[Rfam]
RNA sequence: UGGAGGACUGAGAAGGUUGAACAGCUUCUGCCAUGUUGUUCUAACAGGUUAAACCUCCAAGAGUAAUUAACAAGCCACACAGUUGUCACUCUGAUGGGAGCAGAGCUGACGUGUGUGUUUG
Numbered sequence: 001u002g003g004a005g006g007a008c009u010g011a012g013a014a015g016g017u018u019g020a021a022c023a024g025c026u027u028c029u030g031c032c033a034u035g036u037u038g039u040u041c042u043a044a045c046a047g048g049u050u051a052a053a054c055c056u057c058c059a060a061g062a063g064u065a066a067u068u069a070a071c072a073a074g075c076c077a078c079a080c081a082g083u084u085g086u087c088a089c090u091c092u093g094a095u096g097g098g099a100g101c102a103g104a105g106c107u108g109a110c111g112u113g114u115g116u117g118u119u120u121g
Base pairs, nucleotide, nucleotide: 002058003057004056005055006054016045017044018043019041020040021039022038023037024036025035078113079112080111083109084108085107091103092102093101095099